[Rfam]
RNA sequence: GGACUUAUGAUGAGCUGUGUGUACUGAGCAUGAUGAAAUGAGGCUCAAUGUGAUGACUCUGAAGUUC
Numbered sequence: 001g002g003a004c005u006u007a008u009g010a011u012g013a014g015c016u017g018u019g020u021g022u023a024c025u026g027a028g029c030a031u032g033a034u035g036a037a038a039u040g041a042g043g044c045u046c047a048a049u050g051u052g053a054u055g056a057c058u059c060u061g062a063a064g065u066u067c
Stems, first nucleotide, its partner, number of pairs: 001067005012059003020053001025047005
The record is a 67-nucleotide sequence from Castor canadensis, which matches "Small Nucleolar RNA SNORD64" in Rfam. The family's RNA type in Rfam is C/D-box small nucleolar RNA. The family's consensus secondary structure was predicted with RNAalifold. Rfam describes the family as follows. The human snoRNA HBII-13 belongs to the C/D family of snoRNAs. It is expressed mainly in the brain, but is also in the lungs, the kidneys and muscle. HBII-13 snoRNA has no identified RNA target and is encoded together with HBII-436, HBII-437, HBII-438A/B and the clusters of HBII-85, HBII-52 snoRNA in a 460 kb intron of the large, paternally expressed, transcription unit (SNURF-SNRNP-UBE3A AS). This is antisense to maternally expressed UBE3A gene (Runt et al., 2001). The literature on the family includes a 2001 paper in Hum Mol Genet by Runte et al., "The IC-SNURF-SNRPN transcript serves as a host for multiple small nucleolar RNA species and as an antisense RNA for UBE3A". NCBI's taxonomy places the organism under Eukaryota, Mammalia, Boreoeutheria, Glires, Castor. It scores 86 bits against the family's covariance model.